[Rfam]
RNA sequence: UUAGUGGACGCUUUAACUAUUGAACUGUUUUGUCCCUCUCUGUCAAAUAACAAAUUGUUCUCUGUCAGAGAGUGACAGAACAGUGCAAUAGCUAAAGCGUCCACUAUC
Numbered sequence: 001u002u003a004g005u006g007g008a009c010g011c012u013u014u015a016a017c018u019a020u021u022g023a024a025c026u027g028u029u030u031u032g033u034c035c036c037u038c039u040c041u042g043u044c045a046a047a048u049a050a051c052a053a054a055u056u057g058u059u060c061u062c063u064g065u066c067a068g069a070g071a072g073u074g075a076c077a078g079a080a081c082a083g084u085g086c087a088a089u090a091g092c093u094a095a096a097g098c099g100u101c102c103a104c105u106a107u108c
Stems, first nucleotide, its partner, number of pairs: 002106005011097005017091006024084005029069004034064001049059004
RNA: mir-8517 microRNA precursor family
Organism: Plutella xylostella